[Rfam]
RNA sequence: GGGGUUGACUGGAUUUGACAGCGGGCAGAAAUGGUAGGUAAGCAUGCAGUGGGUCGGUAAUUUCCACUUAAAUCUCAGUUAUCAAAACUUUAUCUGGCGAAACUAAUUACGCUCUUGCUGCUUAAUCGAAUCACAGUAGAUUAGCUUAAUCCAGGCACUAGGUGCCAGGACGAGACAUCACUCGGAAGCUGUUGCUCCGAAGCAUUCCGGUUCAGUGGUGCAGUAACAUCGGGGAUAGUCAGAAGCGGCCUCGCGUUUUUGAUGAAACUUUAGAGGAUAAGGCAGGAAUUGAUGGCUUUGGUUCUGCUCCUGCACGAAAAUUUAGGCAAAGAUAAGCAUGUAGAAAGCUUAUGAUUUCCUCGUUUGGACGAGGGUUCGAUUCCCUCCAGCUCCACCU
Numbered sequence: 001g002g003g004g005u006u007g008a009c010u011g012g013a014u015u016u017g018a019c020a021g022c023g024g025g026c027a028g029a030a031a032u033g034g035u036a037g038g039u040a041a042g043c044a045u046g047c048a049g050u051g052g053g054u055c056g057g058u059a060a061u062u063u064c065c066a067c068u069u070a071a072a073u074c075u076c077a078g079u080u081a082u083c084a085a086a087a088c089u090u091u092a093u094c095u096g097g098c099g100a101a102a103c104u105a106a107u108u109a110c111g112c113u114c115u116u117g118c119u120g121c122u123u124a125a126u127c128g129a130a131u132c133a134c135a136g137u138a139g140a141u142u143a144g145c146u147u148a149a150u151c152c153a154g155g156c157a158c159u160a161g162g163u164g165c166c167a168g169g170a171c172g173a174g175a176c177a178u179c180a181c182u183c184g185g186a187a188g189c190u191g192u193u194g195c196u197c198c199g200a201a202g203c204a205u206u207c208c209g210g211u212u213c214a215g216u217g218g219u220g221c222a223g224u225a226a227c228a229u230c231g232g233g234g235a236u237a238g239u240c241a242g243a244a245g246c247g248g249c250c251u252c253g254c255g256u257u258u259u260u261g262a263u264g265a266a267a268c269u270u271u272a273g274a275g276g277a278u279a280a281g282g283c284a285g286g287a288a289u290u291g292a293u294g295g296c297u298u299u300g301g302u303u304c305u306g307c308u309c310c311u312g313c314a315c316g317a318a319a320a321u322u323u324a325g326g327c328a329a330a331g332a333u334a335a336g337c338a339u340g341u342a343g344a345a346a347g348c349u350u351a352u353g354a355u356u357u358c359c360u361c362g363u364u365u366g367g368a369c370g371a372g373g374g375u376u377c378g379a380u381u382c383c384c385u386c387c388a389g390c391u392c393c394a395c396c397u
Base pairs, nucleotide, nucleotide: 001393002392003391004390005389006388007387019366020365021364024361025360030356031355032354034352035351036350037349038348039347043340044339045338046337047336048068049067050066051065052064056083057082058081059080060079061078062077113175114174115173116172117171176220177219178218179217180216182210183209184208185207187205190202195234196233197232198231199230200229238263239262240261241260242259243258249276250275251274252273282313283312284311285310286309287308296331297330300327370386371385372384373383374382
The family of this 397-nucleotide sequence from Bacteroides thetaiotaomicron is "transfer-messenger RNA".
By type it is a non-coding RNA gene.